[Rfam]
Shown here is a 54-nucleotide sequence, a member of the family "Glutamine riboswitch aptamer (glnA leader)". The base pairs follow the family's consensus structure, which is taken from published work. Rfam's curators put it in the seed alignment. For this family Rfam cites "Structural and Dynamic Basis for Low-Affinity, High-Selectivity Binding of L-Glutamine by the Glutamine Riboswitch" (Ren et al., Cell Rep, 2015).
RNA sequence: AACGUUCAUCUUUUGAUAUAAGACGGAAGUAGGUGAUAACCGAAGGAACGCAUU
Numbered sequence: 001a002a003c004g005u006u007c008a009u010c011u012u013u014u015g016a017u018a019u020a021a022g023a024c025g026g027a028a029g030u031a032g033g034u035g036a037u038a039a040c041c042g043a044a045g046g047a048a049c050g051c052a053u054u
Stems, first nucleotide, its partner, number of pairs: 003050005009023004026051001032041003